[Rfam]
RNA sequence: AAGGGGGAAUCUGAAAACCCAUAUCAAAAGAGUAGGAA
Numbered sequence: 001a002a003g004g005g006g007g008a009a010u011c012u013g014a015a016a017a018c019c020c021a022u023a024u025c026a027a028a029a030g031a032g033u034a035g036g037a038a
Base pairs, nucleotide, nucleotide: 003020004019005018010037011036012035
DUF805b RNA: a 38-nucleotide RNA sequence from Aquimarina algiphila. The source organism's lineage runs through Bacteria, Pseudomonadati, Bacteroidota, Flavobacteriaceae and Aquimarina. The family's RNA type in Rfam is cis-regulatory element.